RNA sequence: AAAACUACCAAACACAAGCACUGACUUGAGUCAUGUAUGCAAUAAGUGCUACUUGUUGGGGUAGUUUUG
Numbered sequence: 001a002a003a004a005c006u007a008c009c010a011a012a013c014a015c016a017a018g019c020a021c022u023g024a025c026u027u028g029a030g031u032c033a034u035g036u037a038u039g040c041a042a043u044a045a046g047u048g049c050u051a052c053u054u055g056u057u058g059g060g061g062u063a064g065u066u067u068u069g
Stems, first nucleotide, its partner, number of pairs: 004065006012056003017050006024043001026041001
RNA: miR-430 microRNA precursor family